The family of this 106-nucleotide RNA from Vibrio vulnificus is "gltS RNA".

[Rfam]
RNA sequence: UAUCACCAAGGAUUGUUUUUCCCACAAAAUUUUUCCUGUGGGAUACGGAAAGGACUCAAAAUCAACCCCCUCUGGUUGAUUGCGAUUCAAAACUAUAAAGGACAAG
Numbered sequence: 001u002a003u004c005a006c007c008a009a010g011g012a013u014u015g016u017u018u019u020u021c022c023c024a025c026a027a028a029a030u031u032u033u034u035c036c037u038g039u040g041g042g043a044u045a046c047g048g049a050a051a052g053g054a055c056u057c058a059a060a061a062u063c064a065a066c067c068c069c070c071u072c073u074g075g076u077u078g079a080u081u082g083c084g085a086u087u088c089a090a091a092a093c094u095a096u097a098a099a100g101g102a103c104a105a106g
Base pairs, nucleotide, nucleotide: 020043021042022041023040024039025038026037061080062079063078064077065076066075067074
The base pairs follow the family's consensus structure, which is taken from published work. The family's RNA type in Rfam is cis-regulatory element.